[Rfam]
RNA sequence: AGCCUUGCGCAGCGGCAGUAUCGUAGCCGAUGAGGGUGUUCCGAGGUGCGAUUAUUGCUAAUUGAAAACUUUUCCCAAUGCCCCGCCAUGACGACUUGAAAUAUAGUCGGCAUUGGCAAUUUUUGAUAGCCUCUUCUUGAGG
Numbered sequence: 001a002g003c004c005u006u007g008c009g010c011a012g013c014g015g016c017a018g019u020a021u022c023g024u025a026g027c028c029g030a031u032g033a034g035g036g037u038g039u040u041c042c043g044a045g046g047u048g049c050g051a052u053u054a055u056u057g058c059u060a061a062u063u064g065a066a067a068a069c070u071u072u073u074c075c076c077a078a079u080g081c082c083c084c085g086c087c088a089u090g091a092c093g094a095c096u097u098g099a100a101a102u103a104u105a106g107u108c109g110g111c112a113u114u115g116g117c118a119a120u121u122u123u124u125g126a127u128a129g130c131c132u133c134u135u136c137u138u139g140a141g142g
Stems, first nucleotide, its partner, number of pairs: 020052005026047003034042003085117003088113003092109005130142004